[Rfam]
RNA: Small nucleolar RNA SNORA17
Organism: Acanthochromis polyacanthus
RNA sequence: AAUGCCCCUUGAGGCGUUGCAGCCCAACCGUCAUUGUUGCAGCUGUGUCAUAAGGAGGCAGAGAGACACUGGUGGUAGUCUGCACUGAGACUCUGCAACACAGAGGACUUGGAGUGAUUCUCACCACCCACAGA
Number, nucleotide and partner (000 for none) at each position: 001a000002a000003u060004g059005c058006c057007c055008c054009u053010u052011g051012a000013g049014g048015c047016g000017u000018u000019g046020c045021a044022g043023c000024c000025c039026a038027a037028c036029c000030g000031u000032c000033a000034u000035u000036g028037u027038u026039g025040c000041a000042g000043c022044u021045g020046u019047g015048u014049c013050a000051u011052a010053a009054g008055g007056a000057g006058g005059c004060a003061g000062a000063g000064a000065g000066a000067c000068a000069c000070u000071g128072g127073u126074g125075g124076u123077a000078g000079u000080c000081u000082g000083c116084a115085c000086u113087g110088a109089g108090a000091c105092u104093c103094u102095g000096c000097a000098a000099c000100a000101c000102a094103g093104a092105g091106g000107a000108c089109u088110u087111g000112g000113a086114g000115u084116g083117a000118u000119u000120c000121u000122c000123a076124c075125c074126a073127c072128c071129c000130a000131c000132a000133g000134a000